The record is a 77-nucleotide sequence from Strigamia maritima, which matches "mir-1 microRNA precursor family" in Rfam. This family represents the microRNA (miRNA) mir-1 family. miRNAs are transcribed as ~70nt precursors (modelled here) and subsequently processed by the Dicer enzyme to give a ~22nt product. In this case the mature sequence comes from the 3' arm of the precursor. The organism belongs to Strigamia, within Eukaryota.
RNA sequence: GGCCGGUCUCCGUGCUUUUUUACGUCCCAUAUCUUAACUUGCUUUGUAUGGAAUGUAAAGAAGUAUGGAGUCUGGUC
Numbered sequence: 001g002g003c004c005g006g007u008c009u010c011c012g013u014g015c016u017u018u019u020u021u022a023c024g025u026c027c028c029a030u031a032u033c034u035u036a037a038c039u040u041g042c043u044u045u046g047u048a049u050g051g052a053a054u055g056u057a058a059a060g061a062a063g064u065a066u067g068g069a070g071u072c073u074g075g076u077c
Base pairs, nucleotide, nucleotide: 008070009069010068011067012066013065014064015063016062017061018060019059020058021057022056023055024054025053027051028050029049030048031047